Shown here is a 141-nucleotide RNA sequence from Seinonella peptonophila, a member of the family "FMN riboswitch aptamer (RFN element)". Lineage of the source: Bacteria > Bacillati > Bacillota > Thermoactinomycetaceae > Seinonella.

RNA sequence: AGCAUCCUUCGGGGCAGGGUGAAACUCCCGACCGGCGGUGAUGGUGAUGGAUCAAUCACCUCAGUCCGUGACCCGCUAAUCGCGGUGGAUUCGGUGCAACUCCGAAGCCGACAGUAAUAGUCUGGAUGGGAGAAGGAUGGU
Numbered sequence: 001a002g003c004a005u006c007c008u009u010c011g012g013g014g015c016a017g018g019g020u021g022a023a024a025c026u027c028c029c030g031a032c033c034g035g036c037g038g039u040g041a042u043g044g045u046g047a048u049g050g051a052u053c054a055a056u057c058a059c060c061u062c063a064g065u066c067c068g069u070g071a072c073c074c075g076c077u078a079a080u081c082g083c084g085g086u087g088g089a090u091u092c093g094g095u096g097c098a099a100c101u102c103c104g105a106a107g108c109c110g111a112c113a114g115u116a117a118u119a120g121u122c123u124g125g126a127u128g129g130g131a132g133a134a135g136g137a138u139g140g141u
Stems, first nucleotide, its partner, number of pairs: 003139008017029003031121002033110002035069004064108002073085002090106005112124003
Annotation
Rfam's curators write: The RFN element is a highly conserved domain that is found frequently in the 5'-untranslated regions of prokaryotic mRNAs that encode for flavin mononucleotide (FMN) biosynthesis and transport proteins. A search with the family's covariance model found it, with a score of 111 bits.